The family of this 145-nucleotide RNA from Myotis davidii is "Small nucleolar RNA SNORA48". Gene Ontology terms of the family: nucleolus and RNA processing. NCBI's taxonomy places the organism under Eukaryota, Bilateria, Vertebrata, Mammalia, Myotis. The family's consensus secondary structure was predicted with RNAalifold.

RNA sequence: ACCCCCUGGCAGUGGGCAUGGAGACACCUGAUUGGUGGUGUUGCUCUUAUAUCAGUCAGGGGCAAAGCAGAUGUACAGUCCUUAGUUCAUUCUAGCUUGAUGGUCGGGUCGGUGGCCAGAGCUGUUUCAUGCCUGAGGCACAUAA
Numbered sequence: 001a002c003c004c005c006c007u008g009g010c011a012g013u014g015g016g017c018a019u020g021g022a023g024a025c026a027c028c029u030g031a032u033u034g035g036u037g038g039u040g041u042u043g044c045u046c047u048u049a050u051a052u053c054a055g056u057c058a059g060g061g062g063c064a065a066a067g068c069a070g071a072u073g074u075a076c077a078g079u080c081c082u083u084a085g086u087u088c089a090u091u092c093u094a095g096c097u098u099g100a101u102g103g104u105c106g107g108g109u110c111g112g113u114g115g116c117c118a119g120a121g122c123u124g125u126u127u128c129a130u131g132c133c134u135g136a137g138g139c140a141c142a143u144a145a
Stems, first nucleotide, its partner, number of pairs: 003062006013054003020047002023042006085139003099133001101131001106128002110124002113121001
Record summary:
From the family's description: The snoRNA ACA 48 has been identified to guide pseudouridylation of the residue U3797 in the 28S rRNA subunit. It scores 65 bits against the family's covariance model. The family is grouped with related families in Rfam's "SNORA48 clan".